This 74-nucleotide RNA sequence from Lacinutrix sp. WUR7 belongs to the Rfam family "Flavo-1 RNA". NCBI's taxonomy places the organism under Bacteria, Pseudomonadati, Flavobacteriales, Flavobacteriaceae, Lacinutrix.
RNA sequence: GGCAGGCAGGGAUAGAAACGACAUCCUUUUUUUACUUUUUUGAAAAAAAGAUAUUGUGUAUAGCCUGACACUUU
Number, nucleotide and partner (000 for none) at each position: 001g000002g000003c000004a000005g000006g000007c000008a000009g066010g065011g064012a000013u062014a061015g000016a000017a000018a057019c056020g000021a000022c000023a052024u051025c050026c000027u000028u000029u047030u046031u045032u044033u043034a000035c000036u000037u000038u000039u000040u000041u000042g000043a033044a032045a031046a030047a029048a000049a000050g025051a024052u023053a000054u000055u000056g019057u018058g000059u000060a000061u014062a013063g000064c011065c010066u009067g000068a000069c000070a000071c000072u000073u000074u000
Pairs were carried over by alignment from the consensus structure, which is taken from published work. A search with the family's covariance model found it, with a score of 50 bits.